[Rfam]
Rfam assigns this 80-nucleotide RNA sequence from Pelodiscus sinensis to the family "Small nucleolar RNA SNORD74". The base pairs follow the family's consensus structure, which was predicted with PFOLD. Its Rfam clan is "SNORD74 clan". Rfam classes the family as a C/D-box small nucleolar RNA. The source organism's lineage runs through Eukaryota, Bilateria, Deuterostomia, Craniata and Pelodiscus. Gene Ontology terms of the family: RNA processing and nucleolus.
RNA sequence: AUGUACCUGCAUGUGAUGAAAACCAUGUUGGUAGGGACAUCUGAGAGCAUGAUGAAUACCAACAUCUCUGAGCGAGACAU
Dot-bracket structure: (((..(.....................................................................).)))
Numbered sequence: 001a002u003g004u005a006c007c008u009g010c011a012u013g014u015g016a017u018g019a020a021a022a023c024c025a026u027g028u029u030g031g032u033a034g035g036g037a038c039a040u041c042u043g044a045g046a047g048c049a050u051g052a053u054g055a056a057u058a059c060c061a062a063c064a065u066c067u068c069u070g071a072g073c074g075a076g077a078c079a080u
Stems, first nucleotide, its partner, number of pairs: 001080003006076001